[Rfam]
RNA sequence: AUGCCCAGUGAUUAUAAAAAGACGCGUUAUUCUGAGGAACCCAACCUGCUGUCAGUCUGUCUUCUGCUCUCCACUCCGUCUCCAUCUCCUCUCGUCUUCCUCUACCUCCACCUCCUCAUCCUCUCUUCCUCACUUUGGCAGCAGGUCCACUGACUGCGAUUAUGAGAUAUGAGGGCAU
Number, nucleotide and partner (000 for none) at each position: 001a178002u177003g176004c175005c174006c173007a000008g000009u000010g000011a000012u000013u000014a000015u000016a000017a000018a000019a000020a000021g000022a000023c000024g000025c000026g000027u000028u000029a000030u000031u000032c000033u000034g000035a101036g100037g099038a098039a000040c000041c000042c000043a000044a000045c000046c000047u000048g000049c000050u000051g000052u000053c000054a000055g000056u000057c000058u000059g000060u000061c000062u000063u000064c000065u000066g000067c000068u000069c000070u000071c000072c000073a000074c000075u000076c000077c000078g000079u000080c000081u000082c000083c000084a000085u000086c000087u000088c000089c000090u000091c000092u000093c000094g000095u000096c000097u000098u038099c037100c036101u035102c000103u000104a000105c000106c000107u000108c000109c000110a000111c000112c000113u000114c000115c000116u000117c000118a000119u000120c000121c000122u000123c000124u000125c000126u000127u000128c000129c000130u000131c000132a000133c000134u000135u000136u000137g000138g000139c000140a000141g000142c000143a000144g000145g000146u000147c000148c000149a000150c000151u000152g000153a000154c000155u000156g000157c000158g000159a000160u000161u000162a000163u000164g000165a000166g000167a000168u000169a000170u000171g000172a000173g006174g005175g004176c003177a002178u001
RNA: Small nucleolar RNA SNORD97